RNA sequence: CCAAAGAUGUCCAUCUCUUUGAGUCUAGAAUAGAAUGCUUUAAGAGUAAUUUUGAAGUGUUAAGCCUAUUCAACAAUGCAGAUAAAAGUUUAACUAUAGAACUUGACUACUGUUAGACUAGACAGACAUGGAU
Numbered sequence: 001c002c003a004a005a006g007a008u009g010u011c012c013a014u015c016u017c018u019u020u021g022a023g024u025c026u027a028g029a030a031u032a033g034a035a036u037g038c039u040u041u042a043a044g045a046g047u048a049a050u051u052u053u054g055a056a057g058u059g060u061u062a063a064g065c066c067u068a069u070u071c072a073a074c075a076a077u078g079c080a081g082a083u084a085a086a087a088g089u090u091u092a093a094c095u096a097u098a099g100a101a102c103u104u105g106a107c108u109a110c111u112g113u114u115a116g117a118c119u120a121g122a123c124a125g126a127c128a129u130g131g132a133u
Stems, first nucleotide, its partner, number of pairs: 002021006029070005034061012087103005104124002107121001111116001
RNA: Group II catalytic intron D1-D4-7
Organism: Jimgerdemannia flammicorona